[Rfam]
RNA sequence: ACCUUUGCAAUCGGACGCUGAGAAGCCUAUAUUUAAUUUGUCGGGCAACCGACUAUGGCGAUAAACGUUUUUCGGAAUAAUCGUUUCGGACCCGGGGGCGGUACCCGGCGCCUCCACCAAUUCGAGCCAGCGCUUUAUAAGCUUAAGCGCUGGCUGUUCAGGGGGCGAAAUAGGAUCGACGAGCGUGGUAAAGGACUGACUUUCGCCCGGCAUUGUACCACCGUAUCGGGCUACUUUUACAAAUGCUAACGAUAACAACGAAGCAUUUGCGGUUGCCGCUUAACAGCUAAGCAACCACGGGGUUCGGGGGGCACCUGGCAACAGAAGCCCCCCACU
Dot-bracket structure: .......................................(((((....)))))...(((((.....(((..((........(((.(((...(((((.......)))))(((((((.............................................)))))))............))))))........))..)))..)))))(((..[.[..[[.)))....]].].]..................................................................[[[[..((((((.]]]]...........))))))...